The record is a 132-nucleotide RNA from Sphingobium sp. YG1, which matches "Group II catalytic intron D1-D4-4" in Rfam.
The pairing is the family consensus, mapped onto this sequence.
About the family: Group II introns are found in rRNA, tRNA and mRNA of organelles in fungi, plants and protists, and also in mRNA in bacteria.
On this family, see Lehmann and Schmidt, Crit Rev Biochem Mol Biol 2003: "Group II introns: structure and catalytic versatility of large natural ribozymes".
[Rfam]
RNA sequence: UAGUGGAUGAAAGGUCCACCCGCGAUGCUCCAGCCGGAAGCAACCGGGGCAGGCGUGGAGGUGACGAAAUGUCUGAAGCCCCUGGAUGACGGUCACGUAGGCGACCGUGUAAGCGAACAGGCCGUAACAUGA
Numbered sequence: 001u002a003g004u005g006g007a008u009g010a011a012a013g014g015u016c017c018a019c020c021c022g023c024g025a026u027g028c029u030c031c032a033g034c035c036g037g038a039a040g041c042a043a044c045c046g047g048g049g050c051a052g053g054c055g056u057g058g059a060g061g062u063g064a065c066g067a068a069a070u071g072u073c074u075g076a077a078g079c080c081c082c083u084g085g086a087u088g089a090c091g092g093u094c095a096c097g098u099a100g101g102c103g104a105c106c107g108u109g110u111a112a113g114c115g116a117a118c119a120g121g122c123c124g125u126a127a128c129a130u131g132a
Stems, first nucleotide, its partner, number of pairs: 020037003045084005050075006060065001091106004096101001109125002